[Rfam]
RNA: Selenocysteine transfer RNA
Organism: Anisakis simplex
Nucleotides: 086
Base pairs, nucleotide, nucleotide: 001086002085003084004083005082006081007080009078012027013026014025015024016023017022028046029045030044031043032042033041048061049060050059051058063077064076065075066074
Number, partner (000 for none) and nucleotide at each position: 001086g002085c003084c004083c005082g006081g007080a008000u009078g010000a011000a012027c013026c014025u015024c016023g017022g018000u019000g020000g021000u022017c023016c024015g025014g026013g027012g028046u029045a030044c031043a032042g033041g034000c035000u036000u037000c038000a039000a040000a041033c042032c043031u044030g045029u046028g047000g048061c049060c050059g051058u052000g053000u054000g055000a056000a057000a058051g059050c060049g061048g062000a063077g064076u065075g066074g067000u068000u069000c070000g071000a072000u073000u074066c075065c076064a077063c078009c079000u080007u081006c082005c083004g084003g085002g086001u